RNA: mir-9058 microRNA precursor family
RNA sequence: GUGAUUGCCGGAUGGGGCCUCUCCACUAGUGCUGUGCAGAGGCUUUCACUGAGGCUGCUGUGGGACUGUAGAGUUUCCCCCUGGGCCACGGAGCCGG
Numbered sequence: 001g002u003g004a005u006u007g008c009c010g011g012a013u014g015g016g017g018c019c020u021c022u023c024c025a026c027u028a029g030u031g032c033u034g035u036g037c038a039g040a041g042g043c044u045u046u047c048a049c050u051g052a053g054g055c056u057g058c059u060g061u062g063g064g065a066c067u068g069u070a071g072a073g074u075u076u077c078c079c080c081c082u083g084g085g086c087c088a089c090g091g092a093g094c095c096g097g
Base pairs, nucleotide, nucleotide: 002096003095005093006092007086008085009084010082011081014080015079016078017077021073022072023071025069026068028067029066032064033063036061037060038059039058041056042055043054044053045052046051